[Rfam]
RNA sequence: GCAGACUCACUCUGCACCCGACUGCAAUCCCAGCCCGGUGCUUUUUCUGUCUGCCAGAGAAACCAUCCGGGUUGUUGUUAGCACUUCGGCCUGUCCGAGGCAACACAGCUUCCCGGAAACAUGUGU
Numbered sequence: 001g002c003a004g005a006c007u008c009a010c011u012c013u014g015c016a017c018c019c020g021a022c023u024g025c026a027a028u029c030c031c032a033g034c035c036c037g038g039u040g041c042u043u044u045u046u047c048u049g050u051c052u053g054c055c056a057g058a059g060a061a062a063c064c065a066u067c068c069g070g071g072u073u074g075u076u077g078u079u080a081g082c083a084c085u086u087c088g089g090c091c092u093g094u095c096c097g098a099g100g101c102a103a104c105a106c107a108g109c110u111u112c113c114c115g116g117a118a119a120c121a122u123g124u125g126u
Base pairs, nucleotide, nucleotide: 001054002053003052004051005050006049014041015040016039017038018037020035022033023032024031066117067116068115069114070113071112074109075108076107077106078105084100085099086098
Annotation
Rfam assigns this 126-nucleotide RNA from Chrysochloris asiatica to the family "Small nucleolar RNA SNORA77". The source organism's lineage runs through Eukaryota, Metazoa, Vertebrata, Teleostomi and Chrysochloris. From the family's description: ACA63 (SNORA77) is a member of the H/ACA class of snoRNAs that guide the sites of modification of uridines to pseudouridines. This snoRNA was identified by computational screening and its expression in mouse experimentally verified by Northern blot and primer extension analysis. Rfam 15.1 lists 843 matches to the family in 607 species. Its family is annotated with RNA processing and nucleolus in the Gene Ontology. The base pairs follow the family's consensus structure, which was predicted with RNAalifold. The match comes from Rfam's covariance-model search (109 bits).